[Rfam]
RNA sequence: AAGGAGCAAUAAAUUCUCUUGAUAGAACAAGAAAGAGUUUAUUGCUCCUUAAUUU
Numbered sequence: 001a002a003g004g005a006g007c008a009a010u011a012a013a014u015u016c017u018c019u020u021g022a023u024a025g026a027a028c029a030a031g032a033a034a035g036a037g038u039u040u041a042u043u044g045c046u047c048c049u050u051a052a053u054u055u
Base pairs, nucleotide, nucleotide: 001050002049003048004047005046006045007044008043009042010041011040012038017032018031019030020029021028
Plastid-psbA-3 3UTR RNA: a 55-nucleotide RNA sequence. It is one of the family's seed sequences. About the family: Plastid psbA-3 is a non-coding RNA (ncRNA) present in plastids. It was identified in inverted repeat sequences in the 3 prime untranslate region (3UTR) of photosystem II quinone-binding protein (psbA).